This 384-nucleotide sequence from Compostibacillus humi belongs to the Rfam family "Bacterial RNase P class B".
RNA sequence: AUACUCCCGUAAUCGCUGCAUGACGCUUGUCAUGUAGAGGAAAGUCCAUGCUCACACAGGCUGAGAUGCCUGUAGUGUUCGUGCUUGACGAAAUCAUAAGUCAAGGUAGCCCUUCGGGCUAACGGCAGGAUCCGUUCCUAAGUCUGUUACAGAUAUGGAACCAUAUCCUUUAAAGUGCCACAGAGACGAGCUGAAAUGGAAACAUUUCAGGUGGAACGCGGUAAACCCCACGAGUGAGCAACCCAAAAUAUGGUAGGGGCACCCUUCAGUAGGGAAAUGAACCGAACGAGGGACAGGUUUAACAACCUGUAGACAGAUGAUUACACCGGCGUACGAGGCUGACCACCGUUUGCAGUACAAUGGAACAGAACAUGGCUUAUGGAG
Numbered sequence: 001a002u003a004c005u006c007c008c009g010u011a012a013u014c015g016c017u018g019c020a021u022g023a024c025g026c027u028u029g030u031c032a033u034g035u036a037g038a039g040g041a042a043a044g045u046c047c048a049u050g051c052u053c054a055c056a057c058a059g060g061c062u063g064a065g066a067u068g069c070c071u072g073u074a075g076u077g078u079u080c081g082u083g084c085u086u087g088a089c090g091a092a093a094u095c096a097u098a099a100g101u102c103a104a105g106g107u108a109g110c111c112c113u114u115c116g117g118g119c120u121a122a123c124g125g126c127a128g129g130a131u132c133c134g135u136u137c138c139u140a141a142g143u144c145u146g147u148u149a150c151a152g153a154u155a156u157g158g159a160a161c162c163a164u165a166u167c168c169u170u171u172a173a174a175g176u177g178c179c180a181c182a183g184a185g186a187c188g189a190g191c192u193g194a195a196a197u198g199g200a201a202a203c204a205u206u207u208c209a210g211g212u213g214g215a216a217c218g219c220g221g222u223a224a225a226c227c228c229c230a231c232g233a234g235u236g237a238g239c240a241a242c243c244c245a246a247a248a249u250a251u252g253g254u255a256g257g258g259g260c261a262c263c264c265u266u267c268a269g270u271a272g273g274g275a276a277a278u279g280a281a282c283c284g285a286a287c288g289a290g291g292g293a294c295a296g297g298u299u300u301a302a303c304a305a306c307c308u309g310u311a312g313a314c315a316g317a318u319g320a321u322u323a324c325a326c327c328g329g330c331g332u333a334c335g336a337g338g339c340u341g342a343c344c345a346c347c348g349u350u351u352g353c354a355g356u357a358c359a360a361u362g363g364a365a366c367a368g369a370a371c372a373u374g375g376c377u378u379a380u381g382g383a384g
Base pairs, nucleotide, nucleotide: 004384005383006382009324010323011322012321013320014319016037017036018035019034020033021032042378043377044376046375047374048373049372050371051238052237053236054235055234056073057072058071059070060069061068079233080232081231082230083229084105085104086103087102088101089100106123107121108120109119110118111117112116124228125227127169128168129167130166135160136159137158138157142154143153144152145151146150175226176225177222178221179220191210192209193208194207195206196205197204198203242258243257244256262292263291264290265289266288269287293310294309295308296307297306298305326363327362328361331358332357333356334355
NCBI's taxonomy places the organism under Bacteria, Bacillati, Bacillota, Bacilli, Compostibacillus.